[Rfam]
RNA sequence: AGGGAAGGGGGCAGAAUACGCGCCAGCAAAAAAUGAGACUAACCGACGCUGUUCAAAAGGCGCCGGUUAUUUUUUUGC
Numbered sequence: 001a002g003g004g005a006a007g008g009g010g011g012c013a014g015a016a017u018a019c020g021c022g023c024c025a026g027c028a029a030a031a032a033a034u035g036a037g038a039c040u041a042a043c044c045g046a047c048g049c050u051g052u053u054c055a056a057a058a059g060g061c062g063c064c065g066g067u068u069a070u071u072u073u074u075u076u077g078c
Stems, first nucleotide, its partner, number of pairs: 011021002040069006047062002
Background
This 78-nucleotide sequence from Pluralibacter gergoviae belongs to the Rfam family "Enterobacterial sRNA STnc240". The organism belongs to Pluralibacter, within Bacteria. Rfam classes the family as a small RNA.